The record is a 151-nucleotide RNA sequence from Gulo gulo, which matches "U11 spliceosomal RNA" in Rfam.
RNA sequence: AAAAAAAGUAUUCUUUUUCACGUCUGUAUUGAAAACAAAAUAUUAUGUAGGACAGCUCCAUUGCUCUUUGUGAGGAAUUGACAUCAAGAGAUUUAGGAAGCAUAAUUUUUUGGUACCUGGGCAGCUGGUGAUCAUGGGUCCCAGUGCUCCU
Numbered sequence: 001a002a003a004a005a006a007a008g009u010a011u012u013c014u015u016u017u018u019c020a021c022g023u024c025u026g027u028a029u030u031g032a033a034a035a036c037a038a039a040a041u042a043u044u045a046u047g048u049a050g051g052a053c054a055g056c057u058c059c060a061u062u063g064c065u066c067u068u069u070g071u072g073a074g075g076a077a078u079u080g081a082c083a084u085c086a087a088g089a090g091a092u093u094u095a096g097g098a099a100g101c102a103u104a105a106u107u108u109u110u111u112g113g114u115a116c117c118u119g120g121g122c123a124g125c126u127g128g129u130g131a132u133c134a135u136g137g138g139u140c141c142c143a144g145u146g147c148u149c150c151u
Base pairs, nucleotide, nucleotide: 008101009100011098012097014042016040017039044072045071046070047069049067050066051065053063054062055061075094076093077092078091079090119149120148121147122146124145125144126143127142128141130140131139132138133137

It scores 64 bits against the family's covariance model. Lineage of the source: Eukaryota > Teleostomi > Sarcopterygii > Dipnotetrapodomorpha > Gulo. Rfam classes the family as a spliceosomal small nuclear RNA. The family is grouped with related families in Rfam's "U1 clan".